Rfam assigns this 115-nucleotide RNA from Halobacillus yeomjeoni to the family "SAM riboswitch aptamer (S box leader)". Taxonomically the source falls in Halobacillus (Bacteria, Bacillota, Bacilli, Bacillaceae).
RNA sequence: CUCUUAUCCAGAGUGGCGGAGGGACUGGCCCUAUGAUGCCCGGCAACCAUCAAGAUAAUCUAAUCUUGACAAGGUGCCAAAUCCUGCAAAGUCUUAAGACUUUGAGAGAUGAGAG
Dot-bracket structure: ((((((((....(.(((...(((.[.[[)))......))))((((.((.((((((........))))))...))))))...(]].]((((((......))))))..)))))))))
Numbered sequence: 001c002u003c004u005u006a007u008c009c010a011g012a013g014u015g016g017c018g019g020a021g022g023g024a025c026u027g028g029c030c031c032u033a034u035g036a037u038g039c040c041c042g043g044c045a046a047c048c049a050u051c052a053a054g055a056u057a058a059u060c061u062a063a064u065c066u067u068g069a070c071a072a073g074g075u076g077c078c079a080a081a082u083c084c085u086g087c088a089a090a091g092u093c094u095u096a097a098g099a100c101u102u103u104g105a106g107a108g109a110u111g112a113g114a115g
Stems, first nucleotide, its partner, number of pairs: 001115008013041001015040003021031003025086001027084002042078004047074002050069006082107001087104006